[Rfam]
RNA sequence: AGCCUGUGCCCAGCAGCCACAGAACCACGUCUGCUCUGAGCUGGGUACUGUCUGUUCAGAACAAACACCGGUUUCUGGAAUGCGGCCAAAUGGCC
Number, nucleotide and partner (000 for none) at each position: 001a000002g094003c093004c092005u000006g000007u089008g000009c000010c000011c000012a000013g086014c085015a000016g083017c082018c000019a000020c078021a000022g074023a073024a072025c071026c070027a000028c000029g066030u065031c000032u063033g062034c000035u060036c059037u058038g057039a056040g055041c054042u000043g052044g051045g000046u000047a000048c000049u000050g000051u044052c043053u000054g041055u040056u039057c038058a037059g036060a035061a000062c033063a032064a000065a030066c029067a000068c000069c000070g026071g025072u024073u023074u022075c000076u000077g000078g020079a000080a000081u000082g017083c016084g000085g014086c013087c000088a000089a007090a000091u000092g004093g003094c002095c000